[Rfam]
RNA sequence: AUACAAAUUAACGUUAACUAUCACGUGUCACGUUUUGAUUGGACGUUGACAACAACAAUACAUUUUCAUCAUUCAAUCAGAACAUGACAUGACAAUCAAUGUUU
Numbered sequence: 001a002u003a004c005a006a007a008u009u010a011a012c013g014u015u016a017a018c019u020a021u022c023a024c025g026u027g028u029c030a031c032g033u034u035u036u037g038a039u040u041g042g043a044c045g046u047u048g049a050c051a052a053c054a055a056c057a058a059u060a061c062a063u064u065u066u067c068a069u070c071a072u073u074c075a076a077u078c079a080g081a082a083c084a085u086g087a088c089a090u091g092a093c094a095a096u097c098a099a100u101g102u103u104u
Stems, first nucleotide, its partner, number of pairs: 021092003025088002029086002033082004038077003
RNA: MIR1520 microRNA precursor family
Organism: Glycine max